[Rfam]
RNA sequence: GGAGUGUUAUGAUGGUGGUGCUUGCACUUAGUCUAGCUCUUACUGUCUAGUCUUAAAAAACUAGGCCG
Numbered sequence: 001g002g003a004g005u006g007u008u009a010u011g012a013u014g015g016u017g018g019u020g021c022u023u024g025c026a027c028u029u030a031g032u033c034u035a036g037c038u039c040u041u042a043c044u045g046u047c048u049a050g051u052c053u054u055a056a057a058a059a060a061c062u063a064g065g066c067c068g
Stems, first nucleotide, its partner, number of pairs: 002039004011033003017028004043068001045066007
Background
This 68-nucleotide RNA from Pseudolactococcus reticulitermitis belongs to the Rfam family "L17 ribosomal protein downstream element". The family's RNA type in Rfam is cis-regulatory element. Lineage of the source: Bacteria > Bacillota > Bacilli > Streptococcaceae > Pseudolactococcus.